[Rfam]
RNA sequence: AACCUUUCAUUUAACGCGUGGGAGGCUUAUAUAUGUGGUGUCGGCUUCGGCCGACUAUGGCGAUAAACGGUUGACGUAAUAAACCAUUCGGACCCGGGGGCGGUACCCGGCGGCUCCACCAGGUUUCAGCCAUUCUAGUCCCUGACGUGCAUGGCAUGAGACUUGCGAAAAGUACCGGCACGGACUGAAACGUGGCGGGGCCGAAACAGGAUCGACGAGGGUGUAAAGGUCGUACUUUCGCUCGGCAUGGUAUCCGCCGUUAUCGGGCCGAACCUUAUAGUUGCCAAUGACAACUAUGCGGAGGCACGUCUCGCUGCGUAAUGCGGCGCGAUAGCCUAAAUUAAAGCCCUAGCUUCCUCGCAGAAGUUAGGCGCGGUUUCGGAGGGCACCGGGCAACAGAAGCCCUCCACU
Numbered sequence: 001a002a003c004c005u006u007u008c009a010u011u012u013a014a015c016g017c018g019u020g021g022g023a024g025g026c027u028u029a030u031a032u033a034u035g036u037g038g039u040g041u042c043g044g045c046u047u048c049g050g051c052c053g054a055c056u057a058u059g060g061c062g063a064u065a066a067a068c069g070g071u072u073g074a075c076g077u078a079a080u081a082a083a084c085c086a087u088u089c090g091g092a093c094c095c096g097g098g099g100g101c102g103g104u105a106c107c108c109g110g111c112g113g114c115u116c117c118a119c120c121a122g123g124u125u126u127c128a129g130c131c132a133u134u135c136u137a138g139u140c141c142c143u144g145a146c147g148u149g150c151a152u153g154g155c156a157u158g159a160g161a162c163u164u165g166c167g168a169a170a171a172g173u174a175c176c177g178g179c180a181c182g183g184a185c186u187g188a189a190a191c192g193u194g195g196c197g198g199g200g201c202c203g204a205a206a207c208a209g210g211a212u213c214g215a216c217g218a219g220g221g222u223g224u225a226a227a228g229g230u231c232g233u234a235c236u237u238u239c240g241c242u243c244g245g246c247a248u249g250g251u252a253u254c255c256g257c258c259g260u261u262a263u264c265g266g267g268c269c270g271a272a273c274c275u276u277a278u279a280g281u282u283g284c285c286a287a288u289g290a291c292a293a294c295u296a297u298g299c300g301g302a303g304g305c306a307c308g309u310c311u312c313g314c315u316g317c318g319u320a321a322u323g324c325g326g327c328g329c330g331a332u333a334g335c336c337u338a339a340a341u342u343a344a345a346g347c348c349c350u351a352g353c354u355u356c357c358u359c360g361c362a363g364a365a366g367u368u369a370g371g372c373g374c375g376g377u378u379u380c381g382g383a384g385g386g387c388a389c390c391g392g393g394c395a396a397c398a399g400a401a402g403c404c405c406u407c408c409a410c411u
Stems, first nucleotide, its partner, number of pairs: 040055005059242005069235001072232004084221002088218003094110005111203007243259004248270003253266002374391004381408006
RNA: Alphaproteobacteria transfer-messenger RNA